This 100-nucleotide RNA sequence from Cohaesibacter gelatinilyticus belongs to the Rfam family "Pyrrolysine insertion sequence mttB".
RNA sequence: UUCACAGCCUCAAAAGUGCCUGACGCACAAGCGGCUCAGGAAAGCGCCCAUACCAUUUUGGCCACCGUGCAAUCUGGUGUUAACUUCUGCCUGCACUCUG
Numbered sequence: 001u002u003c004a005c006a007g008c009c010u011c012a013a014a015a016g017u018g019c020c021u022g023a024c025g026c027a028c029a030a031g032c033g034g035c036u037c038a039g040g041a042a043a044g045c046g047c048c049c050a051u052a053c054c055a056u057u058u059u060g061g062c063c064a065c066c067g068u069g070c071a072a073u074c075u076g077g078u079g080u081u082a083a084c085u086u087c088u089g090c091c092u093g094c095a096c097u098c099u100g
Base pairs, nucleotide, nucleotide: 025032033062035060077098079096080095
The family's consensus secondary structure was predicted with CMfinder. Rfam links the family to the GO term pyrrolysine incorporation. Taxonomically the source falls in Cohaesibacter (Bacteria, Pseudomonadota, Alphaproteobacteria, Hyphomicrobiales). The literature on the family includes a 2013 paper in BMC Bioinformatics by Theil Have et al., "Effects of using coding potential, sequence conservation and mRNA structure conservation for predicting pyrroly-sine containing genes".